[Rfam]
RNA sequence: UUAUCUAUCGGGAAUGAAGUGCUCCCUUGGCAUCCAUAAUACCAGAACCGCUUAUAAAGCUGAUGACUUCUGCGAUCAA
Numbered sequence: 001u002u003a004u005c006u007a008u009c010g011g012g013a014a015u016g017a018a019g020u021g022c023u024c025c026c027u028u029g030g031c032a033u034c035c036a037u038a039a040u041a042c043c044a045g046a047a048c049c050g051c052u053u054a055u056a057a058a059g060c061u062g063a064u065g066a067c068u069u070c071u072g073c074g075a076u077c078a079a
Base pairs, nucleotide, nucleotide: 010026011025012024013023016070017069018068019067020066050060051059052058

Rfam assigns this 79-nucleotide RNA sequence from Oscillospiraceae bacterium Marseille-Q3528 to the family "Fluoride riboswitch aptamer (crcB RNA motif)". A search with the family's covariance model found it, with a score of 46 bits.